The family of this 237-nucleotide sequence from Tyzzerella sp. An114 is "T-box leader". The family has 48 seed sequences and 19,395 matches in Rfam 15.1. Pairs were carried over by alignment from the consensus structure, which is taken from published work. Rfam describes the family as follows. Uncharged tRNA acts as the effector for transcription antitermination of genes in the T-box leader family. T-boxes are found upstream of many aminoacyl-tRNA synthetase genes and some amino acid biosynthetic genes usually in Gram-positive bacteria. The anticodon of a specific tRNA base pairs to a specifier sequence within the T-box motif, and the NCCA acceptor tail of the tRNA base pairs to a conserved bulge in the T-box antiterminator hairpin. The family's RNA type in Rfam is cis-regulatory leader.
[Rfam]
RNA sequence: AAAAAGGCUAUGAAAAGGAGUAGUAAAUAUUAUAUCAUUUUUAGAGAGCUGUCGGAAGGUGUAAGACAGUAAUGAUAUUUUUUUGAACUCGCCUUGGAGCUUCGUUCUGAAAAUCUUUAGUUUUUAUAUAAAGAAUAAGUAGGAAACGACGUAUAACCUGCGUUAAAGGAUUUGAGUGUGGUUUUUAUAAUAAAACUAAACUAGAGUGGUAACGCGGAUAUAUCCUUCGUCUCUAAA
Numbered sequence: 001a002a003a004a005a006g007g008c009u010a011u012g013a014a015a016a017g018g019a020g021u022a023g024u025a026a027a028u029a030u031u032a033u034a035u036c037a038u039u040u041u042u043a044g045a046g047a048g049c050u051g052u053c054g055g056a057a058g059g060u061g062u063a064a065g066a067c068a069g070u071a072a073u074g075a076u077a078u079u080u081u082u083u084u085g086a087a088c089u090c091g092c093c094u095u096g097g098a099g100c101u102u103c104g105u106u107c108u109g110a111a112a113a114u115c116u117u118u119a120g121u122u123u124u125u126a127u128a129u130a131a132a133g134a135a136u137a138a139g140u141a142g143g144a145a146a147c148g149a150c151g152u153a154u155a156a157c158c159u160g161c162g163u164u165a166a167a168g169g170a171u172u173u174g175a176g177u178g179u180g181g182u183u184u185u186u187a188u189a190a191u192a193a194a195a196c197u198a199a200a201c202u203a204g205a206g207u208g209g210u211a212a213c214g215c216g217g218a219u220a221u222a223u224c225c226u227u228c229g230u231c232u233c234u235a236a237a
Stems, first nucleotide, its partner, number of pairs: 007100002015095004026084002029081001037073003048070006103148002105145004150162003179198007203234004214230005
Rfam links the family to the GO term tRNA binding.